[Rfam]
The family of this 160-nucleotide sequence is "DUF2800 RNA".
RNA sequence: CCGUCACUUGAUGCACCGAGUCGCUCUCGGUGGCUCACUUCAUCUGGCGGACAACCAAAUACCAACACGGCGAACCUAUGAGCAAGGUCGCCGCAAUCCGAGACGGAGCGAUUCGUUUGGAGUGCGGUUUUAUUUCCUAUGCCCAUUUUACAGCCGAACC
Numbered sequence: 001c002c003g004u005c006a007c008u009u010g011a012u013g014c015a016c017c018g019a020g021u022c023g024c025u026c027u028c029g030g031u032g033g034c035u036c037a038c039u040u041c042a043u044c045u046g047g048c049g050g051a052c053a054a055c056c057a058a059a060u061a062c063c064a065a066c067a068c069g070g071c072g073a074a075c076c077u078a079u080g081a082g083c084a085a086g087g088u089c090g091c092c093g094c095a096a097u098c099c100g101a102g103a104c105g106g107a108g109c110g111a112u113u114c115g116u117u118u119g120g121a122g123u124g125c126g127g128u129u130u131u132a133u134u135u136c137c138u139a140u141g142c143c144c145a146u147u148u149u150a151c152a153g154c155c156g157a158a159c160c
Stems, first nucleotide, its partner, number of pairs: 001050005009042003013038001014032005033083005068156004090128005103116005